[Rfam]
RNA sequence: GUGCCUUAAACUAAUGAGUAAGGAAAAUAUCUAGCCUUGGUAAUGCUUGGCAGUAACUUAUAUUUGUUAACCAAUUUUUGGAAGGGCUUAGGUCGUCCUGGCUGUUGCGGUUGCAAAAUCGUUACUAUCAGUGAAGCGAUUUGCCCU
Numbered sequence: 001g002u003g004c005c006u007u008a009a010a011c012u013a014a015u016g017a018g019u020a021a022g023g024a025a026a027a028u029a030u031c032u033a034g035c036c037u038u039g040g041u042a043a044u045g046c047u048u049g050g051c052a053g054u055a056a057c058u059u060a061u062a063u064u065u066g067u068u069a070a071c072c073a074a075u076u077u078u079u080g081g082a083a084g085g086g087c088u089u090a091g092g093u094c095g096u097c098c099u100g101g102c103u104g105u106u107g108c109g110g111u112u113g114c115a116a117a118a119u120c121g122u123u124a125c126u127a128u129c130a131g132u133g134a135a136g137c138g139a140u141u142u143g144c145c146c147u
Stems, first nucleotide, its partner, number of pairs: 004023005032053001034051003039046001054069004083147005090142007098131002101128001104125002107122006
This 147-nucleotide RNA sequence from Orchesella cincta belongs to the Rfam family "U12 minor spliceosomal RNA".
Clan: U2 clan.
Rfam classes the family as a spliceosomal small nuclear RNA.
Rfam 15.1 lists 2,106 matches to the family in 1,170 species.
Lineage of the source: Eukaryota > Panarthropoda > Hexapoda > Entomobryoidea > Orchesella.